[Rfam]
RNA: malK-I RNA
RNA sequence: AUAUUGCGGCUGACCUUACUCCACAAAAAUAAGUUCAGGCGCAAAAAAGAAAGGAGUAUUACCGCAUGGCUCGCGGUGCGGCAGUGUGGAGACCUGCCGUAAUGCGAAUAUAGCAACACAACUCUAUAUGUCGCGAGGCAUUCAGAGCGGAGGCUUGAUUGCCAGAGCCAGUCAAGAUGGCA
Numbered sequence: 001a002u003a004u005u006g007c008g009g010c011u012g013a014c015c016u017u018a019c020u021c022c023a024c025a026a027a028a029a030u031a032a033g034u035u036c037a038g039g040c041g042c043a044a045a046a047a048a049g050a051a052a053g054g055a056g057u058a059u060u061a062c063c064g065c066a067u068g069g070c071u072c073g074c075g076g077u078g079c080g081g082c083a084g085u086g087u088g089g090a091g092a093c094c095u096g097c098c099g100u101a102a103u104g105c106g107a108a109u110a111u112a113g114c115a116a117c118a119c120a121a122c123u124c125u126a127u128a129u130g131u132c133g134c135g136a137g138g139c140a141u142u143c144a145g146a147g148c149g150g151a152g153g154c155u156u157g158a159u160u161g162c163c164a165g166a167g168c169c170a171g172u173c174a175a176g177a178u179g180g181c182a
Base pairs, nucleotide, nucleotide: 008040010038011037012036013035015033016032017031018030062076063075064074065073067170068169069168070167071166072165077101078100079099080098081097082096083095084094086093087092104134105133106132107131109130110129111128112127137163138162139161140160142158143157144156146155147154148153